Record summary:
The record is a 108-nucleotide sequence from Rhododendron simsii, which matches "Small nucleolar RNA snoR100" in Rfam. The family's consensus secondary structure was predicted with WAR.
RNA sequence: CAAAGAAGGAAGCUUGGUAAUGUACACAUAAAUUGAUUUGGGUUUCUAGGCCAGCCCUCUCUGAUGCCAUUUGGCUUUGAUCUGGGGGCAUGAUUCUACAACAAAACG
Numbered sequence: 001c002a003a004a005g006a007a008g009g010a011a012g013c014u015u016g017g018u019a020a021u022g023u024a025c026a027c028a029u030a031a032a033u034u035g036a037u038u039u040g041g042g043u044u045u046c047u048a049g050g051c052c053a054g055c056c057c058u059c060u061c062u063g064a065u066g067c068c069a070u071u072u073g074g075c076u077u078u079g080a081u082c083u084g085g086g087g088g089c090a091u092g093a094u095u096c097u098a099c100a101a102c103a104a105a106a107c108g
Stems, first nucleotide, its partner, number of pairs: 012025001015022001040091001042089003050081001052079001054075003